[Rfam]
RNA sequence: GUUGUGGUUGAUGAUGCUCAAUCUUUUUUCCCCGUCUUAUCGACCAUGGUGACCGAUUGUUGAAAUUAAGCCAAUACUGUCUGAAACCACACU
Number, nucleotide and partner (000 for none) at each position: 001g093002u000003u091004g090005u089006g088007g087008u086009u085010g000011a000012u000013g000014a000015u000016g000017c000018u000019c000020a000021a000022u000023c000024u000025u000026u000027u000028u000029u000030c000031c000032c000033c000034g000035u000036c000037u000038u000039a000040u000041c000042g000043a000044c000045c000046a000047u000048g000049g000050u000051g000052a000053c000054c000055g000056a000057u000058u000059g000060u000061u000062g000063a000064a000065a000066u000067u000068a000069a000070g000071c000072c000073a000074a000075u000076a000077c000078u000079g000080u000081c000082u000083g000084a000085a009086a008087c007088c006089a005090c004091a003092c000093u001
A member of the RNA family "Small nucleolar SNORD12/SNORD106" from Albula glossodonta, 93 nucleotides long. Lineage of the source: Eukaryota > Metazoa > Vertebrata > Teleostei > Albula. A reference for the family is Huttenhofer et al. (2001), "RNomics: an experimental approach that identifies 201 candidates for novel, small, non-messenger RNAs in mouse", EMBO J. The family's RNA type in Rfam is C/D-box small nucleolar RNA. The family has 8 seed sequences and 2,264 matches in Rfam 15.1.